Background
Rfam assigns this 162-nucleotide sequence from Lactuca saligna to the family "MIR398 microRNA precursor family". Taxonomically the source falls in Lactuca (Eukaryota, Streptophytina, Gunneridae, campanulids). It scores 59 bits against the family's covariance model. The literature on the family includes a 2004 paper in Mol Cell by Jones-Rhoades and Bartel, "Computational identification of plant microRNAs and their targets, including a stress-induced miRNA". Gene Ontology terms of the family: RISC complex and miRNA-mediated post-transcriptional gene silencing.

RNA sequence: CAUAACUCCAUAGGAGUGACACUAAGAACACACAUGGUUGAAUUGCUAUCUCCACUGCAUAUUCAUAUGUUGUACAGUACAAAUUUUCGAUGCACAUACAGUUGUUUGUGAGACAUUGUCUACCAUCCAUUUGUGUUCUCAGGUCACCCCUUUGGAGCACCC
Numbered sequence: 001c002a003u004a005a006c007u008c009c010a011u012a013g014g015a016g017u018g019a020c021a022c023u024a025a026g027a028a029c030a031c032a033c034a035u036g037g038u039u040g041a042a043u044u045g046c047u048a049u050c051u052c053c054a055c056u057g058c059a060u061a062u063u064c065a066u067a068u069g070u071u072g073u074a075c076a077g078u079a080c081a082a083a084u085u086u087u088c089g090a091u092g093c094a095c096a097u098a099c100a101g102u103u104g105u106u107u108g109u110g111a112g113a114c115a116u117u118g119u120c121u122a123c124c125a126u127c128c129a130u131u132u133g134u135g136u137u138c139u140c141a142g143g144u145c146a147c148c149c150c151u152u153u154g155g156a157g158c159a160c161c162c
Base pairs, nucleotide, nucleotide: 007156008155012151013150014149016147017146018145019144025139026138027137028136029135030134031133032132